[Rfam]
RNA sequence: AUAUAAGAUGAGAUAAUUACGUCUGUGUUAAAUAAAUAGUUGCGUUCUGAUUAUAGCAUCACGUUUGUAUAUACGCAAUAUUAAAGAACCUGGCAGGAUGCCAGGUUCUUUUUUGA
Numbered sequence: 001a002u003a004u005a006a007g008a009u010g011a012g013a014u015a016a017u018u019a020c021g022u023c024u025g026u027g028u029u030a031a032a033u034a035a036a037u038a039g040u041u042g043c044g045u046u047c048u049g050a051u052u053a054u055a056g057c058a059u060c061a062c063g064u065u066u067g068u069a070u071a072u073a074c075g076c077a078a079u080a081u082u083a084a085a086g087a088a089c090c091u092g093g094c095a096g097g098a099u100g101c102c103a104g105g106u107u108c109u110u111u112u113u114u115g116a
Stems, first nucleotide, its partner, number of pairs: 032072003036068002038064001041061002083111011